[Rfam]
This 131-nucleotide RNA from Pleuronectes platessa belongs to the Rfam family "Small nucleolar RNA SNORA55".
RNA sequence: GCACCUCAUAGCAACCCUGUCGAUUCUGUGCAGUGUUUGACACGGGUCACGCCGGUGCCAUAGAGACGCAACGUAUAACCAGAUGGUCUUCCUCUUCCCGUGGAGCCCGUCUCUACAGCUUUGAUACACAA
Numbered sequence: 001g002c003a004c005c006u007c008a009u010a011g012c013a014a015c016c017c018u019g020u021c022g023a024u025u026c027u028g029u030g031c032a033g034u035g036u037u038u039g040a041c042a043c044g045g046g047u048c049a050c051g052c053c054g055g056u057g058c059c060a061u062a063g064a065g066a067c068g069c070a071a072c073g074u075a076u077a078a079c080c081a082g083a084u085g086g087u088c089u090u091c092c093u094c095u096u097c098c099c100g101u102g103g104a105g106c107c108c109g110u111c112u113c114u115a116c117a118g119c120u121u122u123g124a125u126a127c128a129c130a131a
Base pairs, nucleotide, nucleotide: 001058002057003056004055005054013047015045016044018042019041021039022038069123070122071121073119081112082111083110084109085108086107088105091103092102
Its family is annotated with nucleolus and RNA processing in the Gene Ontology. NCBI's taxonomy places the organism under Eukaryota, Deuterostomia, Chordata, Euteleostomi, Pleuronectes. ACA55 is a member of the H/ACA class of snoRNA that guide the sites of modification of uridines to pseudouridines.